[Rfam]
Shown here is a 74-nucleotide sequence from Anaeromonas frigoriresistens, a member of the family "tRNA". The base pairs follow the family's consensus structure, which is taken from published work. Transfer RNA (tRNA) molecules are approximately 80 nucleotides in length. Their secondary structure includes four short double-helical elements and three loops (D, anti-codon, and T loops). Further hydrogen bonds mediate the characteristic L-shaped molecular structure. tRNAs have two regions of fundamental functional importance: the anti-codon, which is responsible for specific mRNA codon recognition, and the 3' end, to which the tRNAs corresponding amino acid is attached (by aminoacyl-tRNA synthetases). tRNAs cope with the degeneracy of the genetic code in two manners: having more than one tRNA (with a specific anti-codon) for a particular amino acid; and 'wobble' base-pairing, i.e. permitting non-standard base-pairing at the 3rd anti-codon position. By type it is a transfer RNA. Lineage of the source: Bacteria > Bacillati > Bacillota > Tissierellia > Anaeromonas. Its family is annotated with triplet codon-amino acid adaptor activity in the Gene Ontology.
RNA sequence: GCUCUCGUAGCUCAGUAGGAUAGAGCAACGCCCUCCUAAGGCGUGUGUCAGGGGUUCGAUUCCUCUCGGGAGCA
Numbered sequence: 001g002c003u004c005u006c007g008u009a010g011c012u013c014a015g016u017a018g019g020a021u022a023g024a025g026c027a028a029c030g031c032c033c034u035c036c037u038a039a040g041g042c043g044u045g046u047g048u049c050a051g052g053g054g055u056u057c058g059a060u061u062c063c064u065c066u067c068g069g070g071a072g073c074a
Stems, first nucleotide, its partner, number of pairs: 001073007010026004028044005050066005